The family of this 75-nucleotide sequence from Alligator mississippiensis is "Mammalian CPEB3 ribozyme". The organism belongs to Alligator, within Eukaryota. A search with the family's covariance model found it, with a score of 43 bits. Pairs were carried over by alignment from the consensus structure, which is taken from published work. The mammalian CPEB3 ribozyme is a self cleaving RNA located in the second intron of the CPEB3 gene which belongs to a family of genes regulating messenger RNA polyadenylation. Rfam links the family to the GO term RNA nuclease activity.
RNA sequence: UCUCAAGCUCAAGGCCAUUGCAAAAGUGUUCAUGGCAUGGCCUGUCAGAUUCUAACAAAAUCUGGACAUUCUGCU
Numbered sequence: 001u002c003u004c005a006a007g008c009u010c011a012a013g014g015c016c017a018u019u020g021c022a023a024a025a026g027u028g029u030u031c032a033u034g035g036c037a038u039g040g041c042c043u044g045u046c047a048g049a050u051u052c053u054a055a056c057a058a059a060a061u062c063u064g065g066a067c068a069u070u071c072u073g074c075u
Base pairs, nucleotide, nucleotide: 013042014041015040016039020074021073022072024070025069026038027037028036046064047063048062049061050060051059